Record summary:
The family of this 83-nucleotide RNA from Robinsoniella sp. RHS is "Glycine riboswitch aptamer". The pairing is the family consensus, mapped onto this sequence. It scores 61 bits against the family's covariance model.
[Rfam]
RNA sequence: UAGAAGGAUUUGGGAGAGACUAUGCAGAUAGCGCCGAAGGGGAAAGUAUGGAAACUCUCAGGCAAAAGAACCAGAUCUGGACG
Numbered sequence: 001u002a003g004a005a006g007g008a009u010u011u012g013g014g015a016g017a018g019a020c021u022a023u024g025c026a027g028a029u030a031g032c033g034c035c036g037a038a039g040g041g042g043a044a045a046g047u048a049u050g051g052a053a054a055c056u057c058u059c060a061g062g063c064a065a066a067a068g069a070a071c072c073a074g075a076u077c078u079g080g081a082c083g
Base pairs, nucleotide, nucleotide: 006078007077008076009075010074011073012072013071020031021030022029023028033063034062035061036059037058040057041056042055
The organism belongs to Robinsoniella, within Bacteria.